[Rfam]
RNA: transfer-messenger RNA
RNA sequence: GGGGGCGACGUAGGCUUCGACGGGGGUUGCAAAACCUGAAGUGCAUGCCGAGGUGCAGAGUACCUCGCUAAACCAUCUGCAAACUUAUAGUUGCCAACGACGACAACUACGCACUCGCUGCUUAAUACCCAGUAGGGUGCCGUCUGACUGGAGCCGUGCUUGUGCGUCCAGCUUUUCAGGCGUCAUAUCUCACAAGAUCGCGUUGAAGCUCGUCCGGGGUGGAAACGUUAAAACCUAUCCGGAAUCGCCUAUUACACGCCCUGUCCGUCGGGUGGUAAUCGGUUAAAUAUAAUAGGCAGGACUAAGCAUGUAGAACUUUUGGCAGAGGACUCGCGGACGGCGGUUCGAAUCCGCCCGCCUCCACCA
Numbered sequence: 001g002g003g004g005g006c007g008a009c010g011u012a013g014g015c016u017u018c019g020a021c022g023g024g025g026g027u028u029g030c031a032a033a034a035c036c037u038g039a040a041g042u043g044c045a046u047g048c049c050g051a052g053g054u055g056c057a058g059a060g061u062a063c064c065u066c067g068c069u070a071a072a073c074c075a076u077c078u079g080c081a082a083a084c085u086u087a088u089a090g091u092u093g094c095c096a097a098c099g100a101c102g103a104c105a106a107c108u109a110c111g112c113a114c115u116c117g118c119u120g121c122u123u124a125a126u127a128c129c130c131a132g133u134a135g136g137g138u139g140c141c142g143u144c145u146g147a148c149u150g151g152a153g154c155c156g157u158g159c160u161u162g163u164g165c166g167u168c169c170a171g172c173u174u175u176u177c178a179g180g181c182g183u184c185a186u187a188u189c190u191c192a193c194a195a196g197a198u199c200g201c202g203u204u205g206a207a208g209c210u211c212g213u214c215c216g217g218g219g220u221g222g223a224a225a226c227g228u229u230a231a232a233a234c235c236u237a238u239c240c241g242g243a244a245u246c247g248c249c250u251a252u253u254a255c256a257c258g259c260c261c262u263g264u265c266c267g268u269c270g271g272g273u274g275g276u277a278a279u280c281g282g283u284u285a286a287a288u289a290u291a292a293u294a295g296g297c298a299g300g301a302c303u304a305a306g307c308a309u310g311u312a313g314a315a316c317u318u319u320u321g322g323c324a325g326a327g328g329a330c331u332c333g334c335g336g337a338c339g340g341c342g343g344u345u346c347g348a349a350u351c352c353g354c355c356c357g358c359c360u361c362c363a364c365c366a
Stems, first nucleotide, its partner, number of pairs: 001362007021335002024332005035322002038319005044310005049067005054081006113138004117133004141182006148171004154166001159196005201227004213243005247283003251279005259272003263302004267297003339355005